[Rfam]
RNA sequence: AAAGCAGGCUGCAAUUGCAGAGCUUCCUGCAGUGGGAGCACUGCCAUUUUCCUGCUGAGAGCAACUCUGUUACAAACACUGUCUGCGGUUUCACCUGCACUGUGGUGAAGACGUUUGUUCUUAACAUGGACAAGU
Numbered sequence: 001a002a003a004g005c006a007g008g009c010u011g012c013a014a015u016u017g018c019a020g021a022g023c024u025u026c027c028u029g030c031a032g033u034g035g036g037a038g039c040a041c042u043g044c045c046a047u048u049u050u051c052c053u054g055c056u057g058a059g060a061g062c063a064a065c066u067c068u069g070u071u072a073c074a075a076a077c078a079c080u081g082u083c084u085g086c087g088g089u090u091u092c093a094c095c096u097g098c099a100c101u102g103u104g105g106u107g108a109a110g111a112c113g114u115u116u117g118u119u120c121u122u123a124a125c126a127u128g129g130a131c132a133a134g135u
Stems, first nucleotide, its partner, number of pairs: 003056006018043003022039005067129004074122002086113002089110007
Overview
This 135-nucleotide RNA sequence from Neopipo cinnamomea belongs to the Rfam family "Small nucleolar RNA SNORA69". The match comes from Rfam's covariance-model search (62 bits). The source organism's lineage runs through Eukaryota, Dipnotetrapodomorpha, Sauropsida, Australaves and Neopipo. Rfam's curators write: U69 is a member of the H/ACA class of small nucleolar RNAs (snoRNAs) which act as guides in the the modification of uridines to pseudouridines.